[Rfam]
RNA sequence: GACAGCAACUGGGGGAGUCGGCGUGAACCGGCUGAGAGGGGGCUUUUAGGCUCCGACCCCUGGAACCUGAUCCGGGUCAUGCCGGCGAAGGGAAGUGCGUGUGUUGCAAA
Numbered sequence: 001g002a003c004a005g006c007a008a009c010u011g012g013g014g015g016a017g018u019c020g021g022c023g024u025g026a027a028c029c030g031g032c033u034g035a036g037a038g039g040g041g042g043c044u045u046u047u048a049g050g051c052u053c054c055g056a057c058c059c060c061u062g063g064a065a066c067c068u069g070a071u072c073c074g075g076g077u078c079a080u081g082c083c084g085g086c087g088a089a090g091g092g093a094a095g096u097g098c099g100u101g102u103g104u105u106g107c108a109a110a
Base pairs, nucleotide, nucleotide: 008096009095010094011060012059013058014057017032018031019030020029021028039054040053041052042051043050066091067090068089072085073084074083075082
RNA: TPP riboswitch aptamer (THI element)
Organism: Aminivibrio pyruvatiphilus